Nucleotides: 097
Base pairs, nucleotide, nucleotide: 004091005090006089007088008087010084011083013081014080017076018075019074020073021072022071026065027064028063034059035058036057037056042051043050044049
Number, partner (000 for none) and nucleotide at each position: 001000g002000a003000u004091c005090c006089g007088g008087a009000c010084u011083c012000a013081c014080g015000c016000g017076a018075u019074c020073g021072c022071a023000a024000c025000g026065c027064c028063u029000a030000a031000a032000c033000c034059u035058u036057g037056u038000c039000a040000g041000a042051a043050c044049c045000g046000g047000a048000a049044g050043g051042u052000a053000g054000c055000a056037g057036c058035a059034a060000u061000a062000c063028g064027g065026g066000a067000u068000g069000c070000u071022u072021g073020u074019g075018a076017u077000a078000g079000g080014c081013g082000c083011g084010a085000u086000c087008u088007c089006c090005g091004g092000g093000u094000c095000c096000c097000u